[Rfam]
RNA sequence: UGCAAGCAUUUUACUAUUAAGAAUCAAUUCCUUCUUGUAUAGAUUGUGUAUUAAUUU
Numbered sequence: 001u002g003c004a005a006g007c008a009u010u011u012u013a014c015u016a017u018u019a020a021g022a023a024u025c026a027a028u029u030c031c032u033u034c035u036u037g038u039a040u041a042g043a044u045u046g047u048g049u050a051u052u053a054a055u056u057u
Base pairs, nucleotide, nucleotide: 018037019036020035021034022033023032
Shown here is a 57-nucleotide sequence from Digitaria exilis, a member of the family "Plastid-rps18 3UTR RNA".
Plastid rps18 is a non-coding RNA (ncRNA) present in plastids. It was identified as a short stem-loop motif in the 3 prime untranslate region (3UTR) of rps18 gene.
Rfam classes the family as a cis-regulatory element.
Taxonomically the source falls in Digitaria (Eukaryota, Euphyllophyta, Poaceae, Panicoideae).
A search with the family's covariance model found it, with a score of 63 bits.